[Rfam]
RNA: nadA riboswitch
RNA sequence: GGCUCCAACAUCCCCGCAGGCUGGGCGCUGAAUCGGACCUGAUUCCCCGACGACGCGCAGUGAGUCUGCUGUAGCC
Numbered sequence: 001g002g003c004u005c006c007a008a009c010a011u012c013c014c015c016g017c018a019g020g021c022u023g024g025g026c027g028c029u030g031a032a033u034c035g036g037a038c039c040u041g042a043u044u045c046c047c048c049g050a051c052g053a054c055g056c057g058c059a060g061u062g063a064g065u066c067u068g069c070u071g072u073a074g075c076c
Base pairs, nucleotide, nucleotide: 001076002075003074004073006071007070013062014060016069017068018067019066020065021064022063023061025058026057027056028055